Shown here is a 74-nucleotide RNA sequence from Oreochromis niloticus, a member of the family "mir-2985 microRNA precursor family".
RNA sequence: CACAGUUAAGGUGGGUGGAAUAGUGUAACAAUAUGUUCUACGUGUUGUUAUAGUAUUCCACCUUCCCUGGUGUG
Number, nucleotide and partner (000 for none) at each position: 001c000002a000003c072004a071005g000006u070007u069008a068009a000010g066011g065012u000013g063014g062015g061016u060017g059018g058019a000020a056021u055022a054023g000024u052025g051026u050027a049028a048029c047030a046031a045032u044033a043034u042035g000036u000037u000038c000039u000040a000041c000042g034043u033044g032045u031046u030047g029048u028049u027050a026051u025052a024053g000054u022055a021056u020057u000058c018059c017060a016061c015062c014063u013064u000065c011066c010067c000068u008069g007070g006071u004072g003073u000074g000

Record summary: Its family is annotated with RISC complex and miRNA-mediated post-transcriptional gene silencing in the Gene Ontology.